[Rfam]
RNA sequence: GCGCGUUCUCGGGGCGGGGUGCAAUUCCCCACCGGCGGUGAUAGCCCGCGAGCGCCUUGCGUUUCGGUUGAAGCGCUUGGGUCAGCAGACCCGGUGUAAUUCCGGGGCCGACGGUAUAGUCCGGAUGGAAGGGACAACGGUU
Numbered sequence: 001g002c003g004c005g006u007u008c009u010c011g012g013g014g015c016g017g018g019g020u021g022c023a024a025u026u027c028c029c030c031a032c033c034g035g036c037g038g039u040g041a042u043a044g045c046c047c048g049c050g051a052g053c054g055c056c057u058u059g060c061g062u063u064u065c066g067g068u069u070g071a072a073g074c075g076c077u078u079g080g081g082u083c084a085g086c087a088g089a090c091c092c093g094g095u096g097u098a099a100u101u102c103c104g105g106g107g108c109c110g111a112c113g114g115u116a117u118a119g120u121c122c123g124g125a126u127g128g129a130a131g132g133g134a135c136a137a138c139g140g141u142u
Stems, first nucleotide, its partner, number of pairs: 004139004009134002017029003031120002033110002035049004044108002052086002090106005112123003
The family of this 142-nucleotide sequence from Pseudorhodobacter sp. E13 is "FMN riboswitch aptamer (RFN element)". A search with the family's covariance model found it, with a score of 107 bits. The source organism's lineage runs through Bacteria, Pseudomonadati, Pseudomonadota, Rhodobacterales and Pseudorhodobacter.